RNA sequence: AAACCAUGAUGAGGGCACUCUAAGAGAAGAUCCUUAAAAUGUUCCAUACACCUAGAAAACGAUUCAUUGGGUUUUUGACGAAACUGGAGAAUGUCGUUCCUAAGUUU
Numbered sequence: 001a002a003a004c005c006a007u008g009a010u011g012a013g014g015g016c017a018c019u020c021u022a023a024g025a026g027a028a029g030a031u032c033c034u035u036a037a038a039a040u041g042u043u044c045c046a047u048a049c050a051c052c053u054a055g056a057a058a059a060c061g062a063u064u065c066a067u068u069g070g071g072u073u074u075u076u077g078a079c080g081a082a083a084c085u086g087g088a089g090a091a092u093g094u095c096g097u098u099c100c101u102a103a104g105u106u107u
Stems, first nucleotide, its partner, number of pairs: 001107001003105002006101001057074002060071001
This 107-nucleotide RNA from Cephalotus follicularis belongs to the Rfam family "Plant small nucleolar RNA R71". Its family is annotated with RNA processing and nucleolus in the Gene Ontology. Rfam classes the family as a C/D-box small nucleolar RNA. The family's consensus secondary structure was predicted with PFOLD.